[Rfam]
RNA sequence: UAAUCUCUAUAUGACUGGCGGAAAGUGGGAGCACCCACAGGGAGUAUGGAGACACUCUGAUCAUCAGAGUACGAAUGCCGACCGCCUGGGCGCUGAAC
Dot-bracket structure: ...(((((((((..(([[[[[....((((....))))..))..))))))))).......................((((..]]]]]..))))......
This 98-nucleotide sequence from Petrocella atlantisensis belongs to the Rfam family "ZMP/ZTP riboswitch aptamer (pfl RNA motif)". Taxonomically the source falls in Petrocella (Bacteria, Bacillati, Clostridia, Lachnospirales). The family's consensus secondary structure is taken from published work. It scores 54 bits against the family's covariance model.